Source information:
A member of the RNA family "Eukaryotic large subunit ribosomal RNA" from Lachnellula suecica, 283 nucleotides of a longer RNA. Taxonomically the source falls in Lachnellula (Eukaryota, Fungi, Pezizomycotina, leotiomyceta).
Nucleotides: 283
Base pairs, nucleotide, nucleotide: 005139006138007137008136009135010134012132013131014130015129016128017127020044021043022042025039026038027037028036029035048055049054063089064088065087066086067085070081071080072079091122092121093119094118095117096115097114098113102109103108142281143280145278149271150270151269152268153267154266158247159246160245161244162243163242164241165240166239167238168237169235171203172202173201174200178195179194180193181192182191183190184189207232208231209230210229212228213227215226216225249259250258
Number, partner (000 for none) and nucleotide at each position: 001000g002000a003000g004000u005139c006138u007137a008136a009135c010134a011000u012132c013131u014130a015129u016128g017127c018000g019000a020044g021043u022042a023000u024000u025039u026038g027037g028036g029035u030000g031000u032000u033000a034000a035029a036028c037027c038026c039025a040000u041000a042022u043021g044020c045000g046000u047000a048055a049054u050000g051000a052000a053000a054049g055048u056000g057000a058000a059000c060000g061000g062000a063089g064088g065087u066086g067085a068000g069000a070081a071080c072079c073000c074000u075000u076000a077000a078000g079072g080071g081070u082000g083000c084000a085067u086066c087065a088064u089063c090000g091122a092121c093119c094118g095117a096115u097114c098113c099000u100000g101000a102109u103108g104000u105000c106000u107000u108103c109102g110000g111000a112000u113098g114097g115096a116000u117095u118094u119093g120000a121092g122091u123000a124000a125000g126000a127017g128016c129015a130014u131013a132012g133000c134010u135009g136008u137007u138006g139005g140000g141000a142281c143280c144000c145278g146000a147000a148000a149271g150270a151269u152268g153267g154266u155000g156000a157000a158247c159246u160245a161244u162243g163242c164241c165240u166239a167238a168237a169235u170000a171203g172202g173201g174200u175000g176000a177000a178195g179194c180193c181192a182191g183190a184189g185000g186000a187000a188000a189184c190183u191182c192181u193180g194179g195178u196000g197000g198000a199000g200174g201173c202172u203171c204000g205000c206000a207232g208231c209230g210229g211000u212228u213227c214000u215226g216225a217000c218000g219000u220000g221000c222000a223000a224000a225216u226215c227213g228212a229210u230209c231208g232207u233000c234000a235169a236000a237168u238167u239166u240165g241164g242163g243162u244161a245160u246159a247158g248000g249259g250258g251000c252000g253000a254000a255000a256000g257000a258250c259249u260000a261000a262000u263000c264000g265000a266154a267153c268152c269151a270150u271149c272000u273000a274000g275000u276000a277000g278145c279000u280143g281142g282000u283000u